[Rfam]
RNA: mir-146 microRNA precursor family
Organism: Felis catus
RNA sequence: UUGGCCACCUGGCUCUGAGAACUGAAUUCCAUAGGCUGUAAGCUCAAGCAAAUGGCCUAGGGACUCAGUUCUGGUGCUCGGCUGUGCUAU
Numbered sequence: 001u002u003g004g005c006c007a008c009c010u011g012g013c014u015c016u017g018a019g020a021a022c023u024g025a026a027u028u029c030c031a032u033a034g035g036c037u038g039u040a041a042g043c044u045c046a047a048g049c050a051a052a053u054g055g056c057c058u059a060g061g062g063a064c065u066c067a068g069u070u071c072u073g074g075u076g077c078u079c080g081g082c083u084g085u086g087c088u089a090u
Base pairs, nucleotide, nucleotide: 008081009080011078012077013076018072019071020070021069022068023067024066025065034056036054
Dot-bracket structure: .......((.(((....((((((((........(.(.................).)........))))))))...))).)).........